[Rfam]
RNA: FMN riboswitch aptamer (RFN element)
RNA sequence: AACUAUCUUCGGGGCAGGGUGUAAUUCCCGACCGGCGGUGAUGGAGAAGUUUUCCUAAGUCCGCGAGCCUUUAUUUUGGGCAGGAUCUGGUGCGAUUCCAGGGCCGACAGUAUAGUCUGGAUGGGAGAAGAUGGUG
Numbered sequence: 001a002a003c004u005a006u007c008u009u010c011g012g013g014g015c016a017g018g019g020u021g022u023a024a025u026u027c028c029c030g031a032c033c034g035g036c037g038g039u040g041a042u043g044g045a046g047a048a049g050u051u052u053u054c055c056u057a058a059g060u061c062c063g064c065g066a067g068c069c070u071u072u073a074u075u076u077u078g079g080g081c082a083g084g085a086u087c088u089g090g091u092g093c094g095a096u097u098c099c100a101g102g103g104c105c106g107a108c109a110g111u112a113u114a115g116u117c118u119g120g121a122u123g124g125g126a127g128a129a130g131a132u133g134g135u136g
Stems, first nucleotide, its partner, number of pairs: 003134008017029003031116002033106002035064004059104002069080001086102005108119003